Rfam assigns this 105-nucleotide sequence from Histophilus somni to the family "traJ-II RNA". Lineage of the source: Bacteria > Gammaproteobacteria > Pasteurellales > Histophilus > Histophilus somni. It is annotated as a cis-regulatory element. It is one of the family's seed sequences.
RNA sequence: GGGCAAGAUAUGUAAAGUUGGCCUUAUUUUAUGAAAUAAAAUAAAUCCACUUUACUCGGAUGUAUUCGCCAUAGGCUCAAAUCCUAUAUCUUGUCCUUCAGAGUU
Numbered sequence: 001g002g003g004c005a006a007g008a009u010a011u012g013u014a015a016a017g018u019u020g021g022c023c024u025u026a027u028u029u030u031a032u033g034a035a036a037u038a039a040a041a042u043a044a045a046u047c048c049a050c051u052u053u054a055c056u057c058g059g060a061u062g063u064a065u066u067c068g069c070c071a072u073a074g075g076c077u078c079a080a081a082u083c084c085u086a087u088a089u090c091u092u093g094u095c096c097u098u099c100a101g102a103g104u105u
Base pairs, nucleotide, nucleotide: 001096002095003094004093005092006091007090008089009088012055013054014053015052016051017050020047021046025043026042027041028040029039031037058084059083060082068076069075070074